[Rfam]
RNA sequence: AAUAGGAGCAUGAUAAAUCAGAUUUUUCUACCUAAUUUUCAGCUUUUUCUUCCUAAAAAAAUUCAAAUCCAACUAAAAAUAUUAAAAAUUAGGACGAAAAAUUUGAUUUGUCAUGUUCCUAUU
Numbered sequence: 001a002a003u004a005g006g007a008g009c010a011u012g013a014u015a016a017a018u019c020a021g022a023u024u025u026u027u028c029u030a031c032c033u034a035a036u037u038u039u040c041a042g043c044u045u046u047u048u049c050u051u052c053c054u055a056a057a058a059a060a061a062u063u064c065a066a067a068u069c070c071a072a073c074u075a076a077a078a079a080u081a082u083u084a085a086a087a088a089u090u091a092g093g094a095c096g097a098a099a100a101a102u103u104u105g106a107u108u109u110g111u112c113a114u115g116u117u118c119c120u121a122u123u
Stems, first nucleotide, its partner, number of pairs: 001123027031093009041083002045079004

This 123-nucleotide RNA sequence from Gossypium gossypioides belongs to the Rfam family "MIR7504 microRNA precursor family". It scores 109 bits against the family's covariance model. Lineage of the source: Eukaryota > Magnoliopsida > eudicotyledons > rosids > Gossypium. Its family is annotated with RISC complex and miRNA-mediated post-transcriptional gene silencing in the Gene Ontology.